[Rfam]
RNA sequence: GGUCUGUGAUGAAUAGUAAAAGGUCUGAUUAUCCUAAGACUUGCAGUUCCAUGACCUUUUCUCCCAGCAGUUUCUUACCAGUCAUGACACAGUAAUGUGUGGCUGGCAGAGUGUUUCCUGACAGCUUGUGAUGUGUUCAGUUCAUGUUAACCUGAAGUAUCAGAGACAUGGCUGGGAUCAGCAUCCAACAGUCCUACUUGAAGAAGUUUGGGGUCUUGGAUUGUUAUAACGGGACAUGUGAUCUGACUUUCCUGCUGAGACC
Numbered sequence: 001g002g003u004c005u006g007u008g009a010u011g012a013a014u015a016g017u018a019a020a021a022g023g024u025c026u027g028a029u030u031a032u033c034c035u036a037a038g039a040c041u042u043g044c045a046g047u048u049c050c051a052u053g054a055c056c057u058u059u060u061c062u063c064c065c066a067g068c069a070g071u072u073u074c075u076u077a078c079c080a081g082u083c084a085u086g087a088c089a090c091a092g093u094a095a096u097g098u099g100u101g102g103c104u105g106g107c108a109g110a111g112u113g114u115u116u117c118c119u120g121a122c123a124g125c126u127u128g129u130g131a132u133g134u135g136u137u138c139a140g141u142u143c144a145u146g147u148u149a150a151c152c153u154g155a156a157g158u159a160u161c162a163g164a165g166a167c168a169u170g171g172c173u174g175g176g177a178u179c180a181g182c183a184u185c186c187a188a189c190a191g192u193c194c195u196a197c198u199u200g201a202a203g204a205a206g207u208u209u210g211g212g213g214u215c216u217u218g219g220a221u222u223g224u225u226a227u228a229a230c231g232g233g234a235c236a237u238g239u240g241a242u243c244u245g246a247c248u249u250u251c252c253u254g255c256u257g258a259g260a261c262c
Base pairs, nucleotide, nucleotide: 001262002261003260004259037244038243039242041240048220049219050218051217053215054214061206062205064203065120066119067118069116070115078106079105080104081103082102083101084100085099086098128186130185131184132183133182134181143170144169145168146167147166148165151163
RNA: Small Cajal body specific RNA 6
Organism: Oceanites oceanicus